[Rfam]
RNA: sRNA-Xcc1
Organism: Tardibacter chloracetimidivorans
RNA sequence: UGCCGGGAGUGUGCGGAUACAAAACCCGCUCUGCGGGGAAGAAGCACGCCUGCCUUCGUUCAGGUUUUCAGCUCCCGGCGACCCGCCG
Numbered sequence: 001u002g003c004c005g006g007g008a009g010u011g012u013g014c015g016g017a018u019a020c021a022a023a024a025c026c027c028g029c030u031c032u033g034c035g036g037g038g039a040a041g042a043a044g045c046a047c048g049c050c051u052g053c054c055u056u057c058g059u060u061c062a063g064g065u066u067u068u069c070a071g072c073u074c075c076c077g078g079c080g081a082c083c084c085g086c087c088g
Base pairs, nucleotide, nucleotide: 001080002079003078004077005076006075007074008073009072011047012046013045014044025037026036027035028034029033048065049064050063051062052061